RNA sequence: GGCUGGUCCCAGUGCUGUGUUGUUUGUUGUUUACAAGGAAUUGAUCACAAACACAGAUUUCUUUGUUCCUUCUCCACUCCUACUGCUUCACUUCACCAGCCCUUC
Number, nucleotide and partner (000 for none) at each position: 001g101002g100003c099004u098005g097006g096007u095008c000009c000010c000011a092012g000013u000014g089015c000016u000017g083018u082019g081020u000021u000022g079023u000024u000025u000026g000027u000028u000029g000030u000031u000032u000033a000034c000035a067036a066037g000038g000039a063040a062041u000042u000043g000044a000045u000046c000047a000048c000049a000050a000051a000052c000053a000054c000055a000056g000057a000058u000059u000060u000061c000062u040063u039064u000065g000066u036067u035068c000069c000070u000071u000072c000073u000074c000075c000076a000077c000078u000079c022080c000081u019082a018083c017084u000085g000086c000087u000088u000089c014090a000091c000092u011093u000094c000095a007096c006097c005098a004099g003100c002101c001102c000103u000104u000105c000

This 105-nucleotide RNA sequence from Prolemur simus belongs to the Rfam family "Y RNA". The family's RNA type in Rfam is non-coding RNA gene. Pairs were carried over by alignment from the consensus structure, which is taken from published work. A reference for the family is Teunissen et al. (2000), "Conserved features of Y RNAs: a comparison of experimentally derived secondary structures", Nucleic Acids Res. The family has 104 seed sequences and 26,986 matches in Rfam 15.1. The match comes from Rfam's covariance-model search (41 bits). The organism belongs to Prolemur, within Eukaryota.